RNA sequence: AUUACAUAACAGCCAUAGCAGAAACACCCACUUUGUGGCCUCUCUCAAAUUCCAACAAAUCUGCAAAUUCUGCU
Numbered sequence: 001a002u003u004a005c006a007u008a009a010c011a012g013c014c015a016u017a018g019c020a021g022a023a024a025c026a027c028c029c030a031c032u033u034u035g036u037g038g039c040c041u042c043u044c045u046c047a048a049a050u051u052c053c054a055a056c057a058a059a060u061c062u063g064c065a066a067a068u069u070c071u072g073c074u
Base pairs, nucleotide, nucleotide: 009041012039013038014037017074018073019072020071021070022069023068024036025035026034046063047062049060050059051058
RNA: Mammalian CPEB3 ribozyme